Rfam assigns this 88-nucleotide sequence from Drosophila ananassae to the family "Small nucleolar RNA Me28S-Gm1083". Rfam links the family to the GO terms RNA processing and nucleolus. NCBI's taxonomy places the organism under Eukaryota, Bilateria, Mandibulata, Sophophora, ananassae species complex. The base pairs follow the family's consensus structure. Rfam's curators put it in the seed alignment.
RNA sequence: UUUGAUAUGAUGAGUACUAACUUUCGCCCCUAUCUGAAAUUUGAAACUUCUCCUGUUGAAUGCGAGAUUGGUCUUACUGAAUAAAUUA
Numbered sequence: 001u002u003u004g005a006u007a008u009g010a011u012g013a014g015u016a017c018u019a020a021c022u023u024u025c026g027c028c029c030c031u032a033u034c035u036g037a038a039a040u041u042u043g044a045a046a047c048u049u050c051u052c053c054u055g056u057u058g059a060a061u062g063c064g065a066g067a068u069u070g071g072u073c074u075u076a077c078u079g080a081a082u083a084a085a086u087u088a
Stems, first nucleotide, its partner, number of pairs: 001085004
Dot-bracket structure: ((((.............................................................................))))...